The record is a 169-nucleotide sequence from Roseburia zhanii, which matches "Clostridiales-1 RNA" in Rfam. Lineage of the source: Bacteria > Bacillota > Lachnospirales > Lachnospiraceae > Roseburia.

[Rfam]
RNA sequence: UAAUACAAGGGUCAGCAAGUCAGAAAUCGUUCCUGCUUGCAGGAUAAGAAUUCUGGCUUGUUGACCCGCUCACACAUGAGGAAGUAGCGAUUUUUCUUGGAAAAUCAGCGGAUUUUGAAUGGGUGUAGAAUUGCGUGAGCUGCAUGGCAGCGGAGCAAUUCGUGUUUGA
Numbered sequence: 001u002a003a004u005a006c007a008a009g010g011g012u013c014a015g016c017a018a019g020u021c022a023g024a025a026a027u028c029g030u031u032c033c034u035g036c037u038u039g040c041a042g043g044a045u046a047a048g049a050a051u052u053c054u055g056g057c058u059u060g061u062u063g064a065c066c067c068g069c070u071c072a073c074a075c076a077u078g079a080g081g082a083a084g085u086a087g088c089g090a091u092u093u094u095u096c097u098u099g100g101a102a103a104a105u106c107a108g109c110g111g112a113u114u115u116u117g118a119a120u121g122g123g124u125g126u127a128g129a130a131u132u133g134c135g136u137g138a139g140c141u142g143c144a145u146g147g148c149a150g151c152g153g154a155g156c157a158a159u160u161c162g163u164g165u166u167u168g169a
Stems, first nucleotide, its partner, number of pairs: 001169001003167001005165003010066004016060010027049002030046001031044005071125003075121003080116004087109002089106007128161007139151004

Source information
The match comes from Rfam's covariance-model search (103 bits). By type it is a small RNA.